Background
A member of the RNA family "EGFOA RNA" from Rhizoctonia solani, 132 nucleotides long. The base pairs follow the family's consensus structure, which is taken from published work.
RNA sequence: UCUUUCCUAGAUGGGGAGUUGUGACUCCAACGACCCCAAGACCCGUCCGUGUGGGCUAUUGCCCAGGCUGGCCGUCAAAGUUAGUACAGACUAUACGCGAUAAAGCACGACCUAGGCGCGUUUGAUGACGGU
Numbered sequence: 001u002c003u004u005u006c007c008u009a010g011a012u013g014g015g016g017a018g019u020u021g022u023g024a025c026u027c028c029a030a031c032g033a034c035c036c037c038a039a040g041a042c043c044c045g046u047c048c049g050u051g052u053g054g055g056c057u058a059u060u061g062c063c064c065a066g067g068c069u070g071g072c073c074g075u076c077a078a079a080g081u082u083a084g085u086a087c088a089g090a091c092u093a094u095a096c097g098c099g100a101u102a103a104a105g106c107a108c109g110a111c112c113u114a115g116g117c118g119c120g121u122u123u124g125a126u127g128a129c130g131g132u
Stems, first nucleotide, its partner, number of pairs: 006116005045111002048109004052065005071132007082093003095121005